About this RNA
This 142-nucleotide RNA from Sciurus carolinensis belongs to the Rfam family "Small nucleolar RNA SNORA4". From the family's description: ACA4 is a member of the H/ACA class of snoRNA that guide the sites of modification of uridines to pseudouridines. NCBI's taxonomy places the organism under Eukaryota, Gnathostomata, Theria, Sciuridae, Sciurus. Pairs were carried over by alignment from the consensus structure, which was predicted with PFOLD. A search with the family's covariance model found it, with a score of 85 bits. Rfam 15.1 lists 290 matches to the family in 136 species. By type it is an H/ACA-box small nucleolar RNA.

[Rfam]
RNA sequence: AGCCCAAGACUUUAUAUUUUAGGGGAAGGUUUUUUAAUAACCUUUACCAAAUUGGGCUAUUUGGGAGAAGAAAUGAAGACCAUGCUCCACAGUGGGUUAUAUACCACUUUGUAGAGUUCAUUGCUAUUUUGUGGCCUUUUUU
Numbered sequence: 001a002g003c004c005c006a007a008g009a010c011u012u013u014a015u016a017u018u019u020u021a022g023g024g025g026a027a028g029g030u031u032u033u034u035u036a037a038u039a040a041c042c043u044u045u046a047c048c049a050a051a052u053u054g055g056g057c058u059a060u061u062u063g064g065g066a067g068a069a070g071a072a073a074u075g076a077a078g079a080c081c082a083u084g085c086u087c088c089a090c091a092g093u094g095g096g097u098u099a100u101a102u103a104c105c106a107c108u109u110u111g112u113a114g115a116g117u118u119c120a121u122u123g124c125u126a127u128u129u130u131g132u133g134g135c136c137u138u139u140u141u142u
Stems, first nucleotide, its partner, number of pairs: 004064005012059001015056001017054001021052001024048002027045001028042004077137002080134005091122008100113001103112002
Gene Ontology terms of the family: RNA processing and nucleolus.